[Rfam]
RNA sequence: AUUGUGUGCUAGAGGGGCUAGUAUAUGCUAGCUGAGAUUGAAAACAAUAUUUUCUGACUCUUAACACCUGAUCUGGUUAAUACCAGCGUAGGGAAGCAUUAAUUUAUGAAA
Numbered sequence: 001a002u003u004g005u006g007u008g009c010u011a012g013a014g015g016g017g018c019u020a021g022u023a024u025a026u027g028c029u030a031g032c033u034g035a036g037a038u039u040g041a042a043a044a045c046a047a048u049a050u051u052u053u054c055u056g057a058c059u060c061u062u063a064a065c066a067c068c069u070g071a072u073c074u075g076g077u078u079a080a081u082a083c084c085a086g087c088g089u090a091g092g093g094a095a096g097c098a099u100u101a102a103u104u105u106a107u108g109a110a111a
Base pairs, nucleotide, nucleotide: 006099007098008097009096010095011061012060013059014058016055017032018031019030020029021028040054041053042052043051067092068091069090070089073086074085075084076083

TPP riboswitch aptamer (THI element): a 111-nucleotide RNA from Clostridium fallax.
It scores 79 bits against the family's covariance model.
NCBI's taxonomy places the organism under Bacteria, Bacillati, Clostridia, Eubacteriales, Clostridium.